[Rfam]
RNA sequence: CACGUCAGUGCGAUUUGCUGACAUGGCAACAAAUCGAGCCCUAUAGAAUGCGAUUUGCUACCACGUCAGCAAAUCGUGCUGACGUGG
Numbered sequence: 001c002a003c004g005u006c007a008g009u010g011c012g013a014u015u016u017g018c019u020g021a022c023a024u025g026g027c028a029a030c031a032a033a034u035c036g037a038g039c040c041c042u043a044u045a046g047a048a049u050g051c052g053a054u055u056u057g058c059u060a061c062c063a064c065g066u067c068a069g070c071a072a073a074u075c076g077u078g079c080u081g082a083c084g085u086g087g
Stems, first nucleotide, its partner, number of pairs: 001086021024063003028059001030057007038049001041046001
Shown here is an 87-nucleotide RNA from Gossypium lobatum, a member of the family "MIR7486 microRNA precursor family". The family has 9 seed sequences and 10,132 matches in Rfam 15.1. Rfam links the family to the GO terms miRNA-mediated post-transcriptional gene silencing and RISC complex. It scores 77 bits against the family's covariance model.